[Rfam]
RNA sequence: AGUAUUUGGGUCUGUGGUUGCAAGUCCAAGCCAGUCGCGGGCAAAGGGAUCCACGUAAGCUACUUCUAAAAAUGGAAGAGUGAGCAUGGCGCGGCUUAGAAGUAAGACCUGCCGAUACAAAAUCGAGAGGGCUAGUAGUGAGGUAACCCCGAAGCGAAAGUUCCAGCAGGCGAGUGUGGGGUCAAAGAUCAGGUCAGCCAAAUAAA
Number, nucleotide and partner (000 for none) at each position: 001a000002g000003u204004a203005u202006u201007u200008g199009g198010g000011u000012c197013u196014g195015u191016g190017g189018u188019u187020g000021c000022a000023a000024g000025u000026c000027c000028a177029a000030g175031c041032c000033a096034g095035u094036c093037g092038c091039g090040g000041g031042c000043a000044a000045a000046g000047g000048g000049a000050u089051c088052c000053a000054c000055g000056u000057a000058a081059g000060c000061u000062a000063c000064u076065u075066c074067u000068a000069a000070a000071a000072a000073u000074g066075g065076a064077a000078g000079a000080g000081u058082g000083a000084g000085c000086a000087u184088g051089g050090c039091g038092c037093g036094g035095c034096u033097u000098a000099g000100a000101a000102g000103u000104a000105a000106g000107a000108c170109c169110u168111g167112c166113c125114g124115a123116u122117a000118c000119a000120a000121a000122a116123u115124c114125g113126a000127g000128a000129g163130g162131g161132c160133u000134a000135g000136u000137a000138g155139u154140g000141a000142g150143g149144u000145a000146a000147c000148c000149c143150c142151g000152a000153a000154g139155c138156g000157a000158a000159a000160g132161u131162u130163c129164c000165a000166g112167c111168a110169g109170g108171c000172g000173a000174g000175u030176g000177u028178g000179g000180g000181g000182u000183c000184a087185a000186a000187g019188a018189u017190c016191a015192g000193g000194u000195c014196a013197g012198c009199c008200a007201a006202a005203u004204a003205a000206a000
Rfam assigns this 206-nucleotide sequence from Peptostreptococcus anaerobius to the family "raiA RNA".
By type it is a riboswitch.
Rfam's curators put it in the seed alignment.